[Rfam]
RNA sequence: UAUUAUUAUGAUGGGAGAGCAAAUCCGCCGAAUUUAAGCAUAUAAUUAAGCGGAAGAAAAGAAAAUAACCAUGAUUCCCUAAGUAACGGCGAGUGAACAGGGAAAAGCUCAAAAAGGAAAAUCCUAUUCAUGGCGCAAGUCAUGUUAUGGAAUUGUCUGGUUGGGGUUUAGUCCUCUCUAUGUUUUUGUCGGGAGCGAAAUGAGUAGGAAUACUAUUUCUUAGAGGGUGAAAGGCCCGUAGUUCCCUACAAUUAUAGAUGGAUUAUUCUCUGUAGAGUAGUGUUCUUUGAGAUUGGAGCACAAAUGUGUGUGAUACAUUUCACAUAAAGCUAAAUAUUUGUAGGAAACCGAUAGCAAACAAGUACCGUGAGGGAAAGAUGAAAUAGCACUCAGGAAUGAGGUUUAAAUAGUACCUGAAAUCGUUAAGAUGGAAC
Numbered sequence: 001u002a003u004u005a006u007u008a009u010g011a012u013g014g015g016a017g018a019g020c021a022a023a024u025c026c027g028c029c030g031a032a033u034u035u036a037a038g039c040a041u042a043u044a045a046u047u048a049a050g051c052g053g054a055a056g057a058a059a060a061g062a063a064a065a066u067a068a069c070c071a072u073g074a075u076u077c078c079c080u081a082a083g084u085a086a087c088g089g090c091g092a093g094u095g096a097a098c099a100g101g102g103a104a105a106a107g108c109u110c111a112a113a114a115a116g117g118a119a120a121a122u123c124c125u126a127u128u129c130a131u132g133g134c135g136c137a138a139g140u141c142a143u144g145u146u147a148u149g150g151a152a153u154u155g156u157c158u159g160g161u162u163g164g165g166g167u168u169u170a171g172u173c174c175u176c177u178c179u180a181u182g183u184u185u186u187u188g189u190c191g192g193g194a195g196c197g198a199a200a201u202g203a204g205u206a207g208g209a210a211u212a213c214u215a216u217u218u219c220u221u222a223g224a225g226g227g228u229g230a231a232a233g234g235c236c237c238g239u240a241g242u243u244c245c246c247u248a249c250a251a252u253u254a255u256a257g258a259u260g261g262a263u264u265a266u267u268c269u270c271u272g273u274a275g276a277g278u279a280g281u282g283u284u285c286u287u288u289g290a291g292a293u294u295g296g297a298g299c300a301c302a303a304a305u306g307u308g309u310g311u312g313a314u315a316c317a318u319u320u321c322a323c324a325u326a327a328a329g330c331u332a333a334a335u336a337u338u339u340g341u342a343g344g345a346a347a348c349c350g351a352u353a354g355c356a357a358a359c360a361a362g363u364a365c366c367g368u369g370a371g372g373g374a375a376a377g378a379u380g381a382a383a384u385a386g387c388a389c390u391c392a393g394g395a396a397u398g399a400g401g402u403u404u405a406a407a408u409a410g411u412a413c414c415u416g417a418a419a420u421c422g423u424u425a426a427g428a429u430g431g432a433a434c
Stems, first nucleotide, its partner, number of pairs: 024055001025053004035042002065072002076103005086094002106331004112162002116158003120154003124150004163271002165268002168265001170264004182255002186251003191245004200216001203214003219223001226236002280301007308325005365372002389400004
Overview: Eukaryotic large subunit ribosomal RNA: a 434-nucleotide part of an RNA from Plasmodium yoelii. On this family, see Yusupov et al., Science 2001: "Crystal structure of the ribosome at 5.5 A resolution". Taxonomically the source falls in Plasmodium yoelii (Eukaryota, Alveolata, Plasmodium, Vinckeia).